RAGATH-18 RNA: a 61-nucleotide RNA. Rfam's curators put it in the seed alignment. Actinobacteria, Firmicutes, Fusobacteria, Thermotogae (1 example).

RNA sequence: CUUGCGGACUGUUACACAAACCAGAGUAGCUGUGGCGAAAUGGGACAGGAUGAAACAAGAA
Numbered sequence: 001c002u003u004g005c006g007g008a009c010u011g012u013u014a015c016a017c018a019a020a021c022c023a024g025a026g027u028a029g030c031u032g033u034g035g036c037g038a039a040a041u042g043g044g045a046c047a048g049g050a051u052g053a054a055a056c057a058a059g060a061a
Base pairs, nucleotide, nucleotide: 001059002058003057004056009048010047011046012045013044021043022042023041029036030035